[Rfam]
RNA: c-di-GMP-I riboswitch aptamer
RNA sequence: UCUCGAUAAUGGCAAACCUGACGAAAGUCCGGGACGCAAAGCUAAAGGGACUAAAGUGUGGACUAUGUCAGCCAGCUGCCGAA
Numbered sequence: 001u002c003u004c005g006a007u008a009a010u011g012g013c014a015a016a017c018c019u020g021a022c023g024a025a026a027g028u029c030c031g032g033g034a035c036g037c038a039a040a041g042c043u044a045a046a047g048g049g050a051c052u053a054a055a056g057u058g059u060g061g062a063c064u065a066u067g068u069c070a071g072c073c074a075g076c077u078g079c080c081g082a083a
Stems, first nucleotide, its partner, number of pairs: 012037002017032002020029003040077004047073002049069003056063002